[Rfam]
RNA sequence: ACGGGAACCACACGGCCGUAGAUCCGACUCGCCGCGUCGCCGGGUGCGUGGCACCGUUUGUCGCCACGCUGCCGGGGCGGCUUGGGACUGCGGUAGUGU
Numbered sequence: 001a002c003g004g005g006a007a008c009c010a011c012a013c014g015g016c017c018g019u020a021g022a023u024c025c026g027a028c029u030c031g032c033c034g035c036g037u038c039g040c041c042g043g044g045u046g047c048g049u050g051g052c053a054c055c056g057u058u059u060g061u062c063g064c065c066a067c068g069c070u071g072c073c074g075g076g077g078c079g080g081c082u083u084g085g086g087a088c089u090g091c092g093g094u095a096g097u098g099u
Stems, first nucleotide, its partner, number of pairs: 010099004015094007024086002031081005
Shown here is a 99-nucleotide RNA sequence, a member of the family "S15-Halobacteria ribosomal protein leader".
A reference for the family is Eckert and Weinberg (2020), "Discovery of 20 novel ribosomal leader candidates in bacteria and archaea", BMC Microbiol.
Clan: Ribosomal Protein S15 Leader clan.